[Rfam]
RNA sequence: GGUCACGAGCAUCGGCCGCACGCCUCCGGACGUGGCCGAUCGGCAACCGCGUCGCUCGACACGGUGCCUUCCGGAGAAGACCUGGGCGCGGCCGACCGGCCGUGACCAAGCCGAGCAC
Numbered sequence: 001g002g003u004c005a006c007g008a009g010c011a012u013c014g015g016c017c018g019c020a021c022g023c024c025u026c027c028g029g030a031c032g033u034g035g036c037c038g039a040u041c042g043g044c045a046a047c048c049g050c051g052u053c054g055c056u057c058g059a060c061a062c063g064g065u066g067c068c069u070u071c072c073g074g075a076g077a078a079g080a081c082c083u084g085g086g087c088g089c090g091g092c093c094g095a096c097c098g099g100c101c102g103u104g105a106c107c108a109a110g111c112c113g114a115g116c117a118c
Stems, first nucleotide, its partner, number of pairs: 001082004009041001011040006021032002042068003047064003052058001085107002087104007